Source information:
The family of this 83-nucleotide RNA sequence from Aphidius gifuensis is "mir-2765 microRNA precursor family".
[Rfam]
RNA sequence: UCAACACUAAGAAUUGGUAACUCCACCACCGUUGGCGUUAAUAAGUAGUCAAUGGGGUAAGAGUUUCCGACUCUUGGUGAUUG
Dot-bracket structure: ..(.((((((((...((.(((((...(.((((((((...........)))))))).)...))))).))...)))))))).)..
Gene Ontology terms of the family: miRNA-mediated post-transcriptional gene silencing and RISC complex. Lineage of the source: Eukaryota > Bilateria > Arthropoda > Ichneumonoidea > Aphidius.